Small nucleolar RNA snoR99: a 104-nucleotide RNA from Hibiscus syriacus.

RNA sequence: GUGCUUUAGGGAUGAACAAGUCCCUUAUAGUCAAUAACGAUCUAAAUCACUUAGUCAGUGGCCUUUUCUUGGUGGAUUGUUGAUCAAUUUGUUAUGGGAUAUUC
Number, nucleotide and partner (000 for none) at each position: 001g000002u000003g000004c000005u000006u000007u000008a000009g000010g000011g000012a000013u000014g000015a000016a000017c000018a000019a000020g000021u000022c000023c000024c000025u000026u000027a000028u000029a000030g000031u000032c000033a000034a000035u000036a000037a000038c097039g000040a095041u094042c000043u000044a000045a000046a000047u000048c000049a000050c000051u000052u000053a000054g084055u083056c082057a081058g080059u079060g078061g077062c000063c000064u000065u000066u000067u000068c000069u000070u000071g000072g000073u000074g000075g000076a000077u061078u060079g059080u058081u057082g056083a055084u054085c000086a000087a000088u000089u000090u000091g000092u000093u000094a041095u040096g000097g038098g000099a000100u000101a000102u000103u000104c000
The match comes from Rfam's covariance-model search (54 bits). The family's RNA type in Rfam is H/ACA-box small nucleolar RNA. Pairs were carried over by alignment from the consensus structure, which was predicted with WAR. Its family is annotated with nucleolus and RNA processing in the Gene Ontology. A reference for the family is Marker et al. (2002), "Experimental RNomics: identification of 140 candidates for small non-messenger RNAs in the plant Arabidopsis thaliana", Curr Biol. Taxonomically the source falls in Hibiscus (Eukaryota, Streptophytina, Tracheophyta, malvids).